[Rfam]
Record summary:
The record is a 108-nucleotide sequence from Rhododendron williamsianum, which matches "Small nucleolar RNA snoR100" in Rfam.

RNA sequence: GAAUGAAGGAAGCAUGGUAAUGUGCACAUAAGUUGAUUUGGGUUUCUAGGCAUGUCCUCCCUGAUGCCUUUCCGCUUUGUUUUAGGGGUAUGGUUCCGCAGCAAAACG
Dot-bracket structure: ...........((((......))))..............(.(((.....(...((..................)).....).....))).).................
Numbered sequence: 001g002a003a004u005g006a007a008g009g010a011a012g013c014a015u016g017g018u019a020a021u022g023u024g025c026a027c028a029u030a031a032g033u034u035g036a037u038u039u040g041g042g043u044u045u046c047u048a049g050g051c052a053u054g055u056c057c058u059c060c061c062u063g064a065u066g067c068c069u070u071u072c073c074g075c076u077u078u079g080u081u082u083u084a085g086g087g088g089u090a091u092g093g094u095u096c097c098g099c100a101g102c103a104a105a106a107c108g
Stems, first nucleotide, its partner, number of pairs: 012025004040091001042089003050081001054075002
About this RNA
The base pairs follow the family's consensus structure, which was predicted with WAR.